This 76-nucleotide RNA from Semnornis frantzii belongs to the Rfam family "Small nucleolar RNA SNORD26". Clan: SNORD26 clan. Rfam classes the family as a C/D-box small nucleolar RNA. A search with the family's covariance model found it, with a score of 56 bits.

RNA sequence: CCGCGGGGAUGAGUCUGUCUCUGAACUCUCUCUUGCCGAGGUCACCGUGGGGAAAGCUUCCUAAGCUCUGAGCGGC
Numbered sequence: 001c002c003g004c005g006g007g008g009a010u011g012a013g014u015c016u017g018u019c020u021c022u023g024a025a026c027u028c029u030c031u032c033u034u035g036c037c038g039a040g041g042u043c044a045c046c047g048u049g050g051g052g053a054a055a056g057c058u059u060c061c062u063a064a065g066c067u068c069u070g071a072g073c074g075g076c
Base pairs, nucleotide, nucleotide: 001075002074003073004072